[Rfam]
RNA sequence: ACCUUAUUAAGAGUGGCGGAGUGACUAGGCACUGUGAAGCCCGGCAACCUGAAUUGGUGCUAAAUCCUACAGAGUAAUCUGAAAGAUGAGGU
Numbered sequence: 001a002c003c004u005u006a007u008u009a010a011g012a013g014u015g016g017c018g019g020a021g022u023g024a025c026u027a028g029g030c031a032c033u034g035u036g037a038a039g040c041c042c043g044g045c046a047a048c049c050u051g052a053a054u055u056g057g058u059g060c061u062a063a064a065u066c067c068u069a070c071a072g073a074g075u076a077a078u079c080u081g082a083a084a085g086a087u088g089a090g091g092u
Base pairs, nucleotide, nucleotide: 001092002091003090004089005088006087007086008085013042015041016040017039021032022031023030026069027068028067029066043061044060045059046058048057049056065084070081071080072079073078
Notes: This 92-nucleotide RNA sequence from Urinicoccus massiliensis belongs to the Rfam family "SAM riboswitch aptamer (S box leader)". The family's consensus secondary structure is taken from published work. A search with the family's covariance model found it, with a score of 74 bits. Taxonomically the source falls in Urinicoccus (Bacteria, Bacillati, Bacillota, Tissierellales). Gene Ontology term of the family: regulation of gene expression.